[Rfam]
RNA sequence: AGGGAACUGGUUUCAGAUGGUGUCUUAGAGUAAAAAUAUGUCUGAUCUAGCACCAUUUGAAAUCGGUGUUCU
Numbered sequence: 001a002g003g004g005a006a007c008u009g010g011u012u013u014c015a016g017a018u019g020g021u022g023u024c025u026u027a028g029a030g031u032a033a034a035a036a037u038a039u040g041u042c043u044g045a046u047c048u049a050g051c052a053c054c055a056u057u058u059g060a061a062a063u064c065g066g067u068g069u070u071c072u
Base pairs, nucleotide, nucleotide: 001072002071003070004069005067007066008065009064010063011062012061013060014059015058017056018055019054020053021052022051026049027048028047029046